[Rfam]
RNA: Ascomycota telomerase RNA, nucleotides 1232 to 1383
Organism: Lomentospora prolificans
RNA sequence: AAAACGGACCCUUUCAGGGACACCUUCCUCUAUUGCACCGGCGACAGAGAUGAUAGCACGGUUUUUGCCAGACGUUUUUGUCCGUGCGGAACCCGCCCUCUACAUGCUCUCCUCGAGACUUGGAUGGAGAGGAAACAACAAACGUCUCAGUU
Numbered sequence: 001a002a003a004a005c006g007g008a009c010c011c012u013u014u015c016a017g018g019g020a021c022a023c024c025u026u027c028c029u030c031u032a033u034u035g036c037a038c039c040g041g042c043g044a045c046a047g048a049g050a051u052g053a054u055a056g057c058a059c060g061g062u063u064u065u066u067g068c069c070a071g072a073c074g075u076u077u078u079u080g081u082c083c084g085u086g087c088g089g090a091a092c093c094c095g096c097c098c099u100c101u102a103c104a105u106g107c108u109c110u111c112c113u114c115g116a117g118a119c120u121u122g123g124a125u126g127g128a129g130a131g132g133a134a135a136c137a138a139c140a141a142a143c144g145u146c147u148c149a150g151u152u
Stems, first nucleotide, its partner, number of pairs: 007021001010019003026053002028049004033044003071146007078138004096132002098129004104125002107122001110117001